Source information
A member of the RNA family "Small nucleolar RNA SNORD97" from Ornithorhynchus anatinus, 199 nucleotides long. A reference for the family is Vitali et al. (2003), "Identification of 13 novel human modification guide RNAs", Nucleic Acids Res. The family's consensus secondary structure was predicted with WAR.

RNA sequence: CUGCCCAAUGAUUACAGAAAGACGCGUUAUUACGAGGACUUAUGCUGGAACUCUGCUUUCUGACCUUUUCUUUUUUCCUCUCUUCCCCACCCUCUGCUCCACCUGCCUUCAUUCUUCUCUCCUCCCCCCCCCCCCCCCCCCCCCCCCCCCACCUUGGGUGUCCAGCGUCCUAUGAGCAAGAUUUGAGAUAUGAGGGCAA
Dot-bracket structure: .(((((............................(((..((......))..)))...........................................................................................................................................))))).